[Rfam]
RNA: Small nucleolar RNA SNORA55
RNA sequence: UUCCCAGGCCUGCUGCUUGGUGCCAGUCUGGGGACAGAGGAAAUCCAGACGGGUUGUUUCCAUCUGUCCUGAGGUGUGUCUCUACAACUCUGCCACACUU
Numbered sequence: 001u002u003c004c005c006a007g008g009c010c011u012g013c014u015g016c017u018u019g020g021u022g023c024c025a026g027u028c029u030g031g032g033g034a035c036a037g038a039g040g041a042a043a044u045c046c047a048g049a050c051g052g053g054u055u056g057u058u059u060c061c062a063u064c065u066g067u068c069c070u071g072a073g074g075u076g077u078g079u080c081u082c083u084a085c086a087a088c089u090c091u092g093c094c095a096c097a098c099u100u
Base pairs, nucleotide, nucleotide: 001034002033003032004031005030006029007028009026035092036091037090038089039088047081048080049079050078051077053075054074061071062070